A member of the RNA family "Saccharopolyspora sRNA 350" from Actinospica robiniae, 504 nucleotides long. Its family is annotated with regulation of secondary metabolite biosynthetic process in the Gene Ontology. Rfam classes the family as an antisense RNA. The family's consensus secondary structure was predicted with RNAfold.
[Rfam]
RNA sequence: GCGCCGUGUACGCCCACGUGCCCGCUUCGCCGACCAGGCCCUCGUCGCCGAAGAAGUCGCGGUCCGCGAGCAGGCCGAGGCGCCCCUCGUUGCCGUACUUGCCCUGGAUCCGCCGGGAGACCUUGCCGUGCGCGAUCAGCACCGCGUACUCGGCCGCGGCGCCGGCCUCCACGAUGACCUCGCCGGCCGAGUACUCGCGCUGCUCGCACCGGCCGGCCAGCGCCGCGAGCGUCUCGGCGUCGUCGAACUCGUGCAGCAGCGGGAGCUCGGCGAGCUCCUCGGGCACCACGCUCACCCGGUCCCCGAUGUUGGAGAAGGUGAGCUUGCCGUCGCCCACCACGAACGACAGGCGGCGGUUGACCCGGUAGGUGCCGCCGUUGACCUGCACCCAGGGCAGCACCUUGAGCAGCCAGCGGGAGGAGAUCCCCUGCAUCUGCGGGGGCGUCUUCGUCGUGGUGGCGAGGUUGCGCGCCGCGUCGGUGCUCAGGGACUGGCGUGCCGACG
Numbered sequence: 001g002c003g004c005c006g007u008g009u010a011c012g013c014c015c016a017c018g019u020g021c022c023c024g025c026u027u028c029g030c031c032g033a034c035c036a037g038g039c040c041c042u043c044g045u046c047g048c049c050g051a052a053g054a055a056g057u058c059g060c061g062g063u064c065c066g067c068g069a070g071c072a073g074g075c076c077g078a079g080g081c082g083c084c085c086c087u088c089g090u091u092g093c094c095g096u097a098c099u100u101g102c103c104c105u106g107g108a109u110c111c112g113c114c115g116g117g118a119g120a121c122c123u124u125g126c127c128g129u130g131c132g133c134g135a136u137c138a139g140c141a142c143c144g145c146g147u148a149c150u151c152g153g154c155c156g157c158g159g160c161g162c163c164g165g166c167c168u169c170c171a172c173g174a175u176g177a178c179c180u181c182g183c184c185g186g187c188c189g190a191g192u193a194c195u196c197g198c199g200c201u202g203c204u205c206g207c208a209c210c211g212g213c214c215g216g217c218c219a220g221c222g223c224c225g226c227g228a229g230c231g232u233c234u235c236g237g238c239g240u241c242g243u244c245g246a247a248c249u250c251g252u253g254c255a256g257c258a259g260c261g262g263g264a265g266c267u268c269g270g271c272g273a274g275c276u277c278c279u280c281g282g283g284c285a286c287c288a289c290g291c292u293c294a295c296c297c298g299g300u301c302c303c304c305g306a307u308g309u310u311g312g313a314g315a316a317g318g319u320g321a322g323c324u325u326g327c328c329g330u331c332g333c334c335c336a337c338c339a340c341g342a343a344c345g346a347c348a349g350g351c352g353g354c355g356g357u358u359g360a361c362c363c364g365g366u367a368g369g370u371g372c373c374g375c376c377g378u379u380g381a382c383c384u385g386c387a388c389c390c391a392g393g394g395c396a397g398c399a400c401c402u403u404g405a406g407c408a409g410c411c412a413g414c415g416g417g418a419g420g421a422g423a424u425c426c427c428c429u430g431c432a433u434c435u436g437c438g439g440g441g442g443c444g445u446c447u448u449c450g451u452c453g454u455g456g457u458g459g460c461g462a463g464g465u466u467g468c469g470c471g472c473c474g475c476g477u478c479g480g481u482g483c484u485c486a487g488g489g490a491c492u493g494g495c496g497u498g499c500c501g502a503c504g
Stems, first nucleotide, its partner, number of pairs: 006388005014380001017326002020323002023320004027315002034312004041305001044304001047301001048299003053232001057228007067107001074102001076101004080096003084092001116221001119218001121216002126211001128209002132207004137202003142199001152188005160176001165172001234294001236292001239289002242286002248282002251279001253277001255276003260269002328341003350378007360370003390430005396424001398422001400420001402417002406414001436475004442470004446464006476503002479500003483496001485494001487492001